Rfam assigns this 137-nucleotide RNA from Megalops atlanticus to the family "Small nucleolar RNA SNORA57". It is annotated as an H/ACA-box small nucleolar RNA. U99 belongs to the H/ACA class of snoRNAs which are thought to guide the sites of modification of uridines to pseudouridines, the target for this family is unknown. Its family is annotated with RNA processing and nucleolus in the Gene Ontology. Lineage of the source: Eukaryota > Gnathostomata > Neopterygii > Elopocephala > Megalops.

Nucleotides: 137
Stems, first nucleotide, its partner, number of pairs: 001058005015045006022038001025036002070129005089111006096105001
Number, partner (000 for none) and nucleotide at each position: 001058c002057c003056u004055c005054c006000a007000u008000u009000u010000c011000u012000u013000g014000g015045c016044a017043u018042a019041c020040a021000c022038g023000c024000u025036g026035u027000u028000g029000g030000u031000c032000a033000g034000u035026a036025c037000u038022c039000g040020u041019g042018u043017g044016u045015g046000u047000a048000a049000u050000g051000u052000a053000c054005g055004g056003a057002g058001g059000a060000a061000c062000a063000u064000g065000a066000a067000a068000g069000c070129c071128a072127g073126u074125g075000c076000u077000a078000u079000g080000u081000c082000u083000u084000c085000g086000g087000u088000g089111c090110c091109a092108g093107c094106g095000u096105g097000u098000g099000a100000u101000u102000g103000g104000u105096c106094u107093g108092c109091u110090g111089g112000u113000c114000c115000u116000a117000u118000c119000c120000u121000c122000a123000a124000u125074c126073a127072c128071u129070g130000g131000c132000a133000c134000a135000c136000u137000u